[Rfam]
RNA sequence: CCUUUCGCGGAAAAAGGUGUGUAUCUAUGUAUACAUACAUACAUACAUAGAUGCACACCUUUUUCCCCGAAAGG
Numbered sequence: 001c002c003u004u005u006c007g008c009g010g011a012a013a014a015a016g017g018u019g020u021g022u023a024u025c026u027a028u029g030u031a032u033a034c035a036u037a038c039a040u041a042c043a044u045a046c047a048u049a050g051a052u053g054c055a056c057a058c059c060u061u062u063u064u065c066c067c068c069g070a071a072a073g074g
Stems, first nucleotide, its partner, number of pairs: 003072005009066003013062002017058005024051006
RNA: mir-965 microRNA precursor family